This 171-nucleotide sequence from Orenia metallireducens belongs to the Rfam family "Lysine riboswitch aptamer". The match comes from Rfam's covariance-model search (124 bits). Its family is annotated with lysine biosynthetic process in the Gene Ontology. The base pairs follow the family's consensus structure, which is taken from published work.
RNA sequence: GAAUGGGGUAGAGGUGCAAAAGUCAAGAGUACUUUUAAGGAGAGUAGGAAAACUUGAAGAAUUAAAAGGAAAGGGGCAAUUGCCGAAGUGGUAAGUCUAUUCCAAACUUACUGCUGGGUCUGUAUUGAAUAGGUACAGAACUGCCACUAUCAGUGGAGCGCUAUCUCACUC
Numbered sequence: 001g002a003a004u005g006g007g008g009u010a011g012a013g014g015u016g017c018a019a020a021a022g023u024c025a026a027g028a029g030u031a032c033u034u035u036u037a038a039g040g041a042g043a044g045u046a047g048g049a050a051a052a053c054u055u056g057a058a059g060a061a062u063u064a065a066a067a068g069g070a071a072a073g074g075g076g077c078a079a080u081u082g083c084c085g086a087a088g089u090g091g092u093a094a095g096u097c098u099a100u101u102c103c104a105a106a107c108u109u110a111c112u113g114c115u116g117g118g119u120c121u122g123u124a125u126u127g128a129a130u131a132g133g134u135a136c137a138g139a140a141c142u143g144c145c146a147c148u149a150u151c152a153g154u155g156g157a158g159c160g161c162u163a164u165c166u167c168a169c170u171c
Stems, first nucleotide, its partner, number of pairs: 006166006016083004022077003032068007087115010098104001116142002119139008144156005